The record is a 196-nucleotide RNA sequence from Terrihalobacillus insolitus, which matches "Group II catalytic intron D1-D4-5" in Rfam.
Gene Ontology term of the family: Group II intron splicing.
NCBI's taxonomy places the organism under Bacteria, Bacillota, Bacilli, Bacillaceae, Terrihalobacillus.
Pairs were carried over by alignment from the consensus structure.
Group II introns are found in rRNA, tRNA and mRNA of organelles in fungi, plants and protists, and also in mRNA in bacteria.
RNA sequence: CUGAAGGAUUAUAUCGAAGAGUCAAAUGAUAGCGUAACGUCUUGAAGGGCUCUCUCUUAGUCGAAUAGCACUUGAUUUAGCAAGAAUGAGAGUGUUAUAAGCUCGGUGAAAAGGCGUGAGAAUUUACCGUAACAGUCCCGGCUGACGAAAUUCUACCCGCGGGGGCGGUGUAAAUCAUGGCGCUUGAGCUGAAUGA
Numbered sequence: 001c002u003g004a005a006g007g008a009u010u011a012u013a014u015c016g017a018a019g020a021g022u023c024a025a026a027u028g029a030u031a032g033c034g035u036a037a038c039g040u041c042u043u044g045a046a047g048g049g050c051u052c053u054c055u056c057u058u059a060g061u062c063g064a065a066u067a068g069c070a071c072u073u074g075a076u077u078u079a080g081c082a083a084g085a086a087u088g089a090g091a092g093u094g095u096u097a098u099a100a101g102c103u104c105g106g107u108g109a110a111a112a113g114g115c116g117u118g119a120g121a122a123u124u125u126a127c128c129g130u131a132a133c134a135g136u137c138c139c140g141g142c143u144g145a146c147g148a149a150a151u152u153c154u155a156c157c158c159g160c161g162g163g164g165g166c167g168g169u170g171u172a173a174a175u176c177a178u179g180g181c182g183c184u185u186g187a188g189c190u191g192a193a194u195g196a
Base pairs, nucleotide, nucleotide: 018053019052020051021050022049023048031043032042034040054188055187056186061106062105063104064103065098066097067096068095069094070093071092072091073090077086078085113184114183115182116181117180122175123174124173125172126171127170128147129146130145134143135142152168153167156165157164158163

Record summary:
Rfam 15.1 lists 720 matches to the family in 418 species.